[Rfam]
The record is a 164-nucleotide RNA from Apophysomyces sp. BC1034, which matches "U11 spliceosomal RNA" in Rfam. Rfam classes the family as a spliceosomal small nuclear RNA.

RNA sequence: AAAAAGGGCGCGUCACAGGAGACACUCAUUCGUGGGUGUUUUUGUAUGUGACAAGAGUAUUUUACAAUGACUCUUGCGGUAUGGCAAUCAAGACAUAUCGAGCGCAUAAUUUUUUUUAACUGGGCGGUUCGCUGUUUGGCUUCGCUUAAGCCGGAGCCGCCCUC
Numbered sequence: 001a002a003a004a005a006g007g008g009c010g011c012g013u014c015a016c017a018g019g020a021g022a023c024a025c026u027c028a029u030u031c032g033u034g035g036g037u038g039u040u041u042u043u044g045u046a047u048g049u050g051a052c053a054a055g056a057g058u059a060u061u062u063u064a065c066a067a068u069g070a071c072u073c074u075u076g077c078g079g080u081a082u083g084g085c086a087a088u089c090a091a092g093a094c095a096u097a098u099c100g101a102g103c104g105c106a107u108a109a110u111u112u113u114u115u116u117u118a119a120c121u122g123g124g125c126g127g128u129u130c131g132c133u134g135u136u137u138g139g140c141u142u143c144g145c146u147u148a149a150g151c152c153g154g155a156g157c158c159g160c161c162c163u164c
Base pairs, nucleotide, nucleotide: 008105009104010103011102013051014050015049016048017047052076053075054074055073056072057071058070061067062066077100078099079098080097081096082095083094122162123161124160125159126158127157128156129155130154132153134151135150136149137148138147139146